[Rfam]
RNA sequence: ACCGCUGAGCCAUCUCUCCAGCCCCCAUUUUUUUUAAGAAUACAAUUUAUGUGGAGCUGGAGAGAUGGCUCAGUGGU
Dot-bracket structure: .(((((((((((((((((((((.(.............................).))))))))))))))))))))).
Numbered sequence: 001a002c003c004g005c006u007g008a009g010c011c012a013u014c015u016c017u018c019c020a021g022c023c024c025c026c027a028u029u030u031u032u033u034u035u036a037a038g039a040a041u042a043c044a045a046u047u048u049a050u051g052u053g054g055a056g057c058u059g060g061a062g063a064g065a066u067g068g069c070u071c072a073g074u075g076g077u
Stems, first nucleotide, its partner, number of pairs: 002076021024054001

This 77-nucleotide sequence from Peromyscus maniculatus belongs to the Rfam family "mir-3473 microRNA precursor family". The organism belongs to Peromyscus maniculatus, within Eukaryota. The base pairs follow the family's consensus structure, which was predicted with RNAalifold. The match comes from Rfam's covariance-model search (77 bits).